[Rfam]
RNA sequence: GGCAGAGUAAAUAACUGUGCGUGUUAGUGCUUCGGGAUGGGACGUUGCCUGAAGACGAAAGCCUCAAGGCUGCGGUGCAGUUAUUGCGUCCGCUGUC
Numbered sequence: 001g002g003c004a005g006a007g008u009a010a011a012u013a014a015c016u017g018u019g020c021g022u023g024u025u026a027g028u029g030c031u032u033c034g035g036g037a038u039g040g041g042a043c044g045u046u047g048c049c050u051g052a053a054g055a056c057g058a059a060a061g062c063c064u065c066a067a068g069g070c071u072g073c074g075g076u077g078c079a080g081u082u083a084u085u086g087c088g089u090c091c092g093c094u095g096u097c
Base pairs, nucleotide, nucleotide: 001097002096003095004094005093010085011084012083013082014081015080016079017078018077019076020074021073022072027056028055030054031053032052033051034050035049036048040091041090042089043088044087060071061070062069063068